Shown here is a 55-nucleotide sequence from Synaphobranchus kaupii, a member of the family "UnaL2 LINE 3' element".

RNA sequence: UGCAUGCACUUAUUGUACGUCGCUUUGGAUAAAAGCAUCUGCUAAAUGACUGUAA
Numbered sequence: 001u002g003c004a005u006g007c008a009c010u011u012a013u014u015g016u017a018c019g020u021c022g023c024u025u026u027g028g029a030u031a032a033a034a035g036c037a038u039c040u041g042c043u044a045a046a047u048g049a050c051u052g053u054a055a
Stems, first nucleotide, its partner, number of pairs: 014044001015042003022036005
The source organism's lineage runs through Eukaryota, Opisthokonta, Metazoa, Actinopteri and Synaphobranchus.